Shown here is a 95-nucleotide RNA from Actinidia chinensis, a member of the family "MIR535 microRNA precursor family". Pairs were carried over by alignment from the consensus structure, which was predicted with RNAalifold. NCBI's taxonomy places the organism under Eukaryota, Mesangiospermae, asterids, Actinidia, Actinidia chinensis. It scores 89 bits against the family's covariance model.
[Rfam]
RNA sequence: AUUAUUGUUUGACAACGAGAGAGAGCACGCUCGUAUGCAUUCAUGCAUGGGGCACGAUUGUGUACUAGCGUGCUUUCUCUCGGCGUCAUACGAUU
Dot-bracket structure: .........((((..((..((.(.(((((((.((.............................)).))))))).).))..))..)))).......
Numbered sequence: 001a002u003u004a005u006u007g008u009u010u011g012a013c014a015a016c017g018a019g020a021g022a023g024a025g026c027a028c029g030c031u032c033g034u035a036u037g038c039a040u041u042c043a044u045g046c047a048u049g050g051g052g053c054a055c056g057a058u059u060g061u062g063u064a065c066u067a068g069c070g071u072g073c074u075u076u077c078u079c080u081c082g083g084c085g086u087c088a089u090a091c092g093a094u095u
Stems, first nucleotide, its partner, number of pairs: 010088004016082002020078002023075001025073007033065002